Background: The record is a 61-nucleotide RNA, which matches "RAGATH-18 RNA" in Rfam. The base pairs follow the family's consensus structure, which is taken from published work. Actinobacteria, Firmicutes, Fusobacteria, Thermotogae (1 example). The family's RNA type in Rfam is small RNA.
RNA sequence: CCUCCGGACUGUCGGACAAACUCAAGUAGCUACGGCGAAAGAGGACAGGAAGAACGAGGAA
Numbered sequence: 001c002c003u004c005c006g007g008a009c010u011g012u013c014g015g016a017c018a019a020a021c022u023c024a025a026g027u028a029g030c031u032a033c034g035g036c037g038a039a040a041g042a043g044g045a046c047a048g049g050a051a052g053a054a055c056g057a058g059g060a061a
Base pairs, nucleotide, nucleotide: 001059002058003057004056009048010047011046012045013044021043022042023041029036030035

Rfam's curators put it in the seed alignment.